[Rfam]
RNA sequence: GUAGUUGGGUCCCCAAUUUUUUGGAAAGUUCCAAAUUC
Numbered sequence: 001g002u003a004g005u006u007g008g009g010u011c012c013c014c015a016a017u018u019u020u021u022u023g024g025a026a027a028g029u030u031c032c033a034a035a036u037u038c
Stems, first nucleotide, its partner, number of pairs: 003018006020035006